[Rfam]
RNA sequence: AGGAAGUGGUAUAGUGGGAGUACGGAGGGUUUUGAUCUCUCAGGUGCAGGUUCAAUUCCUGUCUUUCUA
Numbered sequence: 001a002g003g004a005a006g007u008g009g010u011a012u013a014g015u016g017g018g019a020g021u022a023c024g025g026a027g028g029g030u031u032u033u034g035a036u037c038u039c040u041c042a043g044g045u046g047c048a049g050g051u052u053c054a055a056u057u058c059c060u061g062u063c064u065u066u067c068u069a
Stems, first nucleotide, its partner, number of pairs: 001068006009023004025041005046062005